[Rfam]
RNA sequence: GAGGUAUGAGGAAGACAUCUGAACAGUCUGAUAGUCAGUGAAGACUGGUAAGAUCCAACUCUGACCUUAGCCAGUGC
Numbered sequence: 001g002a003g004g005u006a007u008g009a010g011g012a013a014g015a016c017a018u019c020u021g022a023a024c025a026g027u028c029u030g031a032u033a034g035u036c037a038g039u040g041a042a043g044a045c046u047g048g049u050a051a052g053a054u055c056c057a058a059c060u061c062u063g064a065c066c067u068u069a070g071c072c073a074g075u076g077c
Base pairs, nucleotide, nucleotide: 001068002067003066004065
RNA: Small nucleolar RNA SNORD19